[Rfam]
RNA sequence: ACCCGUACCCCGGGGAGCCUGCUUUGGCUGAGAGGUGGGCGUAGCGGCCCGCGACCCGUUGAACCUGAACCCGUUAGCACGGGCGGAGGGAAGGGCAGCCGCGCGGCAC
Numbered sequence: 001a002c003c004c005g006u007a008c009c010c011c012g013g014g015g016a017g018c019c020u021g022c023u024u025u026g027g028c029u030g031a032g033a034g035g036u037g038g039g040c041g042u043a044g045c046g047g048c049c050c051g052c053g054a055c056c057c058g059u060u061g062a063a064c065c066u067g068a069a070c071c072c073g074u075u076a077g078c079a080c081g082g083g084c085g086g087a088g089g090g091a092a093g094g095g096c097a098g099c100c101g102c103g104c105g106g107c108a109c
Stems, first nucleotide, its partner, number of pairs: 006097001008095003011058004017028003035052005064089003070083004

TPP riboswitch aptamer (THI element): a 109-nucleotide sequence from Croceicoccus marinus. The match comes from Rfam's covariance-model search (55 bits).